[Rfam]
RNA: drz-agam-2-2 ribozyme
RNA sequence: AUAAACUAGCUCUGUUUAUAGGGUAGGAUCCGAGAGACUCCUUUCGGGGUCACACAGGCUCUCUUACCUAACUUCUAUUCCAUCACGUCCUCGUCGUACAGAUUGGUAACUUUCCCCAUCACAUAUGCAAGCUUGGGUACACGGGCCUGUCCCAACCCAUUGGGCGGAUGGUGGAGAAAGGCUAAACAAAAGGGA
Numbered sequence: 001a002u003a004a005a006c007u008a009g010c011u012c013u014g015u016u017u018a019u020a021g022g023g024u025a026g027g028a029u030c031c032g033a034g035a036g037a038c039u040c041c042u043u044u045c046g047g048g049g050u051c052a053c054a055c056a057g058g059c060u061c062u063c064u065u066a067c068c069u070a071a072c073u074u075c076u077a078u079u080c081c082a083u084c085a086c087g088u089c090c091u092c093g094u095c096g097u098a099c100a101g102a103u104u105g106g107u108a109a110c111u112u113u114c115c116c117c118a119u120c121a122c123a124u125a126u127g128c129a130a131g132c133u134u135g136g137g138u139a140c141a142c143g144g145g146c147c148u149g150u151c152c153c154a155a156c157c158c159a160u161u162g163g164g165c166g167g168a169u170g171g172u173g174g175a176g177a178a179a180g181g182c183u184a185a186a187c188a189a190a191a192g193g194g195a
Stems, first nucleotide, its partner, number of pairs: 009104001011102005021069008030058002073195004078191002085097003089106002110180005117173004125169002128166001133155005157164002